[Rfam]
Nucleotides: 267
Base pairs, nucleotide, nucleotide: 001267002266003265004264005263006262009058010057011056012030013029014028015027017025019023035055036054037053038052039051064260065259066258067257068256069255070254073251074250075249081243082242083241084240086238087237088236089235093233094232097227098226099225100224102222104221106217107216108215115211116210117209118208119207120206121205122204123200124199125198126197127196128195129191130190133188134187135186136185138181139180140179141178142177148173149172150171151170156165157164158163
Number, partner (000 for none) and nucleotide at each position: 001267c002266c003265g004264u005263g006262c007000u008000a009058g010057a011056c012030g013029g014028g015027g016000a017025g018000g019023u020000a021000g022000c023019g024000g025017u026000g027015c028014c029013c030012u031000g032000u033000a034000a035055c036054u037053c038052g039051c040000a041000a042000u043000c044000c045000g046000c047000u048000g049000u050000a051039g052038c053037g054036a055035g056011g057010u058009u059000g060000a061000a062000u063000u064260c065259c066258u067257g068256u069255u070254a071000g072000a073251g074250g075249u076000a077000u078000u079000g080000u081243c082242g083241a084240u085000g086238u087237g088236a089235g090000g091000c092000u093233g094232g095000u096000c097227c098226c099225u100224g101000c102222g103000c104221u105000c106217a107216g108215c109000g110000u111000u112000g113000a114000c115211g116210g117209u118208u119207g120206g121205g122204u123200c124199c125198u126197c127196c128195g129191c130190a131000a132000u133188g134187a135186g136185c137000a138181c139180u140179u141178g142177u143000g144000a145000a146000c147000c148173u149172g150171g151170u152000c153000a154000g155000g156165u157164c158163c159000g160000g161000a162000a163158g164157g165156a166000a167000g168000c169000a170151g171150c172149c173148a174000u175000a176000a177142g178141c179140a180139a181138g182000a183000c184000c185136g186135c187134u188133u189000u190130u191129g192000u193000g194000c195128c196127g197126g198125a199124g200123g201000g202000g203000u204122g205121c206120c207119u208118a209117g210116c211115c212000c213000g214000a215108g216107c217106u218000g219000u220000u221104g222102c223000u224100c225099a226098g227097g228000a229000u230000u231000g232094c233093c234000g235089c236088u237087c238086g239000g240084a241083u242082c243081g244000c245000a246000a247000u248000c249075a250074u251073c252000a253000a254070u255069a256068a257067c258066a259065g260064g261000u262006g263005c264004a265003c266002g267001g